[Rfam]
RNA sequence: UAGCGAGCUCCAUCGUGCACAGGUUUGAGUGUUUGUGUUGUGUGCUAGUCGCAUUCAGCCUUUGAACGGUAGAGAUGGCCA
Number, nucleotide and partner (000 for none) at each position: 001u000002a000003g079004c078005g000006a076007g000008c074009u073010c072011c000012a070013u069014c068015g067016u066017g000018c064019a063020c000021a061022g060023g059024u058025u057026u000027g056028a055029g054030u053031g052032u051033u000034u000035g000036u000037g000038u000039u000040g000041u000042g000043u000044g000045c000046u000047a000048g000049u000050c000051g032052c031053a030054u029055u028056c027057a025058g024059c023060c022061u021062u000063u019064g018065a000066a016067c015068g014069g013070u012071a000072g010073a009074g008075a000076u006077g000078g004079c003080c000081a000